[Rfam]
RNA sequence: UCCUCGAUCUGCUGCGGGCAGAUGAAGUGGAUGUGGCUGUCGAUGCCGCCCGCGGUGAGGAUCAUGCCCUCGCCGGCAAUGAUCUCGGUGCCGGGGCCGAUCACGAUGUCGACACCCGGUUGCACGUCGGGGUUGCCGGCCUUGCCGAUCGCGGCGAUGCGCUGGCCCCGCAGGCCCACGUCGGCCUUGACGAUGCCCCAGUGAUCGAUGAUCAGCGCGUUGGUGAUCACGCAGUCCAUCGCGUCCAUGGCGCCCGGCCCGUUGACCGCCUGCGAUUGGCCCAUGCCGUCGCGGA
Number, nucleotide and partner (000 for none) at each position: 001u294002c000003c293004u000005c291006g290007a289008u000009c000010u156011g155012c154013u153014g152015c151016g074017g073018g000019c000020a070021g069022a000023u000024g000025a000026a000027g000028u000029g050030g049031a000032u048033g047034u000035g046036g000037c000038u043039g000040u000041c000042g000043a038044u000045g000046c035047c033048g032049c030050c029051c000052g000053c000054g000055g067056u066057g065058a000059g000060g000061a000062u000063c000064a000065u057066g056067c055068c000069c021070u020071c000072g000073c017074c016075g146076g145077c000078a000079a142080u000081g140082a000083u138084c000085u000086c000087g000088g136089u135090g133091c132092c131093g000094g128095g127096g123097c122098c000099g121100a120101u119102c118103a000104c000105g115106a000107u000108g000109u000110c000111g000112a000113c000114a000115c105116c000117c000118g102119g101120u100121u099122g097123c096124a000125c000126g000127u095128c094129g000130g000131g092132g091133u090134u000135g089136c088137c000138g083139g000140c081141c000142u079143u000144g000145c076146c075147g000148a000149u000150c000151g015152c014153g013154g012155c011156g010157a000158u000159g000160c000161g280162c279163u278164g277165g000166c000167c000168c000169c274170g273171c272172a271173g270174g269175c000176c000177c000178a000179c000180g000181u000182c000183g000184g218185c217186c000187u215188u214189g213190a000191c000192g000193a000194u000195g000196c000197c000198c207199c000200a000201g000202u000203g000204a000205u000206c000207g198208a000209u000210g000211a000212u000213c189214a188215g187216c000217g185218c184219g000220u000221u268222g267223g266224u000225g000226a263227u000228c000229a000230c000231g000232c261233a000234g259235u000236c000237c000238a000239u000240c000241g000242c000243g000244u000245c000246c000247a000248u000249g000250g000251c000252g000253c000254c000255c000256g000257g000258c000259c234260c000261g232262u000263u226264g000265a000266c223267c222268g221269c174270c173271u172272g171273c170274g169275a000276u000277u164278g163279g162280c161281c000282c000283a000284u000285g000286c000287c000288g000289u007290c006291g005292c000293g003294g001295a000
A member of the RNA family "5' ureB small RNA" from Rivibacter subsaxonicus, 295 nucleotides long. Gene Ontology term of the family: negative regulation of gene expression. The literature on the family includes a 2013 paper in J Bacteriol by Wen et al., "Helicobacter pylori 5'ureB-sRNA, a cis-encoded antisense small RNA, negatively regulates ureAB expression by transcription termination". Taxonomically the source falls in Rivibacter (Bacteria, Pseudomonadati, Betaproteobacteria, Burkholderiales). A search with the family's covariance model found it, with a score of 108 bits.